[Rfam]
Nucleotides: 116
Base pairs, nucleotide, nucleotide: 005036006035007034008033009032014031015030016029017028018027019026043076045074047072048071049070050069051068052067055064079111082108083107084106085105086104087103088102089101090100091099092098
Number, partner (000 for none) and nucleotide at each position: 001000c002000a003000a004000a005036c006035c007034u008033u009032a010000u011000a012000a013000u014031u015030u016029g017028a018027u019026c020000c021000a022000g023000a024000g025000a026019g027018g028017u029016c030015a031014a032009u033008a034007a035006g036005g037000a038000a039000g040000u041000u042000a043076u044000a045074u046000a047072a048071u049070g050069g051068u052067a053000u054000c055064u056000u057000a058000u059000g060000c061000u062000g063000u064055a065000a066000u067052u068051a069050u070049u071048a072047u073000g074045a075000c076043a077000u078000u079111a080000u081000u082108a083107a084106g085105c086104c087103u088102u089101c090100c091099u092098u093000u094000a095000u096000u097000c098092a099091a100090g101089g102088a103087a104086g105085g106084c107083u108082u109000u110000u111079u112000u113000u114000a115000a116000u

This 116-nucleotide RNA from Clostridium tarantellae belongs to the Rfam family "PyrR binding site".
For this family Rfam cites "Molecular recognition of pyr mRNA by the Bacillus subtilis attenuation regulatory protein PyrR" (Bonner et al., Nucleic Acids Res, 2001).
Taxonomically the source falls in Clostridium (Bacteria, Bacillota, Clostridia, Eubacteriales).
Rfam's curators write: This family represents the PyrR binding site and terminator structure.